[Rfam]
RNA sequence: AAACACUUGUCGGAGUGCCAGAGGCUGAGAUCGCGAAAGCGGGAUCCGUGGAACCUGAUCAGAGUAGGCUAACUAGCCAAAUCUGCGUAGGGAACAAGAGCAAACAGUAG
Numbered sequence: 001a002a003a004c005a006c007u008u009g010u011c012g013g014a015g016u017g018c019c020a021g022a023g024g025c026u027g028a029g030a031u032c033g034c035g036a037a038a039g040c041g042g043g044a045u046c047c048g049u050g051g052a053a054c055c056u057g058a059u060c061a062g063a064g065u066a067g068g069c070u071a072a073c074u075a076g077c078c079a080a081a082u083c084u085g086c087g088u089a090g091g092g093a094a095c096a097a098g099a100g101c102a103a104a105c106a107g108u109a110g
Stems, first nucleotide, its partner, number of pairs: 006098005011048004016042001017025003032041003054091004060085004
Rfam assigns this 110-nucleotide RNA sequence from Thalassotalea agarivorans to the family "TPP riboswitch aptamer (THI element)". The family's consensus secondary structure is taken from published work. Lineage of the source: Bacteria > Pseudomonadota > Gammaproteobacteria > Alteromonadales > Thalassotalea. It scores 58 bits against the family's covariance model.